[Rfam]
The record is a 70-nucleotide RNA sequence from Trypanosoma brucei, which matches "Trypanosomatid snoRNA TB9Cs1H2" in Rfam. Rfam's curators put it in the seed alignment.
RNA sequence: CACGGGGCAAUCCGAGGUCAGUGAGCUUCACUUCGUGCCGCAUGAUGCCUUCUGGUGGCUCCGGAGAAGC
Dot-bracket structure: ..(((.((......(((..............................))).......)).))).......
Numbered sequence: 001c002a003c004g005g006g007g008c009a010a011u012c013c014g015a016g017g018u019c020a021g022u023g024a025g026c027u028u029c030a031c032u033u034c035g036u037g038c039c040g041c042a043u044g045a046u047g048c049c050u051u052c053u054g055g056u057g058g059c060u061c062c063g064g065a066g067a068a069g070c
Stems, first nucleotide, its partner, number of pairs: 003063003007059002015050003
The base pairs follow the family's consensus structure, which was predicted with WAR. The family's RNA type in Rfam is H/ACA-box small nucleolar RNA.